Overview
The family of this 154-nucleotide RNA from Diabrotica balteata is "U12 minor spliceosomal RNA".
RNA sequence: GUGCCUUAAACUAAUGAGUAAGGAAAAUAAACAAGCCCUGGUAACGCUUGGCUUACAUACUAAUUUUAUUAGUUUGUAAUUUUUUUAGGGGUAAAGGUCGUCCCGUGGAGGAAUGCAUACUCUAGCAGACUACCUGGUGACAGCGAUCUGCCCC
Numbered sequence: 001g002u003g004c005c006u007u008a009a010a011c012u013a014a015u016g017a018g019u020a021a022g023g024a025a026a027a028u029a030a031a032c033a034a035g036c037c038c039u040g041g042u043a044a045c046g047c048u049u050g051g052c053u054u055a056c057a058u059a060c061u062a063a064u065u066u067u068a069u070u071a072g073u074u075u076g077u078a079a080u081u082u083u084u085u086u087a088g089g090g091g092u093a094a095a096g097g098u099c100g101u102c103c104c105g106u107g108g109a110g111g112a113a114u115g116c117a118u119a120c121u122c123u124a125g126c127a128g129a130c131u132a133c134c135u136g137g138u139g140a141c142a143g144c145g146a147u148c149u150g151c152c153c154c
Stems, first nucleotide, its partner, number of pairs: 004023005033054005040047001059073004088154005095149007104137001107134002110131001114127003
Dot-bracket structure: ...(((((..........))))).........(((((..(......)..)))))....((((.......))))..............(((((..(((((((..(..((.(...(((........)))...).))..).....))))))))))))

Taxonomically the source falls in Diabrotica (Eukaryota, Metazoa, Luperini, Diabroticites). Rfam 15.1 lists 2,106 matches to the family in 1,170 species. Rfam classes the family as a spliceosomal small nuclear RNA.